[Rfam]
A member of the RNA family "Glycine riboswitch aptamer" from Paractinoplanes tereljensis, 96 nucleotides long. This family represents the bacterial glycine riboswitch. Its Rfam clan is "Glycine riboswitch clan". The match comes from Rfam's covariance-model search (59 bits).
RNA sequence: CGAACCGCGGCGGGAGAGUCCCCGGCUCCGGCCGGGGCGCCGAAGGAGCAAAUCCUCCCCGGGAAUCUCUCAGGCACCCGUUACCGUCGCAUGGCA
Numbered sequence: 001c002g003a004a005c006c007g008c009g010g011c012g013g014g015a016g017a018g019u020c021c022c023c024g025g026c027u028c029c030g031g032c033c034g035g036g037g038c039g040c041c042g043a044a045g046g047a048g049c050a051a052a053u054c055c056u057c058c059c060c061g062g063g064a065a066u067c068u069c070u071c072a073g074g075c076a077c078c079c080g081u082u083a084c085c086g087u088c089g090c091a092u093g094g095c096a
Stems, first nucleotide, its partner, number of pairs: 007090007020037004039075003042071002046069003053061001
Dot-bracket structure: ......(((((((......((((..........)))).(((((..(((....(.......).....))))).)))........)))))))......